[Rfam]
RNA: mir-8521 microRNA precursor family
Organism: Plutella xylostella
RNA sequence: GGCGCGGCAGUCAGAAUUCGGGACGAGCCCGGAGCGGUGGCUUGUCCCGAAUUUUGACUCGGCCAAAU
Numbered sequence: 001g002g003c004g005c006g007g008c009a010g011u012c013a014g015a016a017u018u019c020g021g022g023a024c025g026a027g028c029c030c031g032g033a034g035c036g037g038u039g040g041c042u043u044g045u046c047c048c049g050a051a052u053u054u055u056g057a058c059u060c061g062g063c064c065a066a067a068u
Base pairs, nucleotide, nucleotide: 006064007063008062009059010058011057012056013055014054015053016052017051018050019049020048021047022046023045024044025043026042027041028040029037030036031035